[Rfam]
RNA sequence: CCCUGACAGCUACAUGGUGUGGCUGACACUAGCCAAGACAGGAGAUACCCAUG
Dot-bracket structure: .((((.(((((.........))))).............))))...........

Annotation
This 53-nucleotide RNA belongs to the Rfam family "Mu-gpT-DE RNA". It is one of the family's seed sequences. The family's consensus secondary structure is taken from published work. It is annotated as a small RNA.